[Rfam]
RNA sequence: UUUAUUCCUCCGUCCUGGAAGCUCCUCAUCUUUUUGAGCAAUUGAUUUGGAGAAAUGGACUACAUGUCAAUUUACCAGUACAUUAUUUAGAUUUAUUUUAAGUCAUAAAAUUCAACUUUGACAUUAAGUAGGAAACGAAAUAUGAAAAGGUGGUGAAAACUUUAAGUUAAAGAUAAAUUGACUAUCUAUA
Numbered sequence: 001u002u003u004a005u006u007c008c009u010c011c012g013u014c015c016u017g018g019a020a021g022c023u024c025c026u027c028a029u030c031u032u033u034u035u036g037a038g039c040a041a042u043u044g045a046u047u048u049g050g051a052g053a054a055a056u057g058g059a060c061u062a063c064a065u066g067u068c069a070a071u072u073u074a075c076c077a078g079u080a081c082a083u084u085a086u087u088u089a090g091a092u093u094u095a096u097u098u099u100a101a102g103u104c105a106u107a108a109a110a111u112u113c114a115a116c117u118u119u120g121a122c123a124u125u126a127a128g129u130a131g132g133a134a135a136c137g138a139a140a141u142a143u144g145a146a147a148a149g150g151u152g153g154u155g156a157a158a159a160c161u162u163u164a165a166g167u168u169a170a171a172g173a174u175a176a177a178u179u180g181a182c183u184a185u186c187u188a189u190a
Stems, first nucleotide, its partner, number of pairs: 001059006008052005066182009080163001082161001084159001086157003115151005122144003131136001
This 190-nucleotide sequence belongs to the Rfam family "RT-16 RNA". The sequence is in the family's curated seed alignment.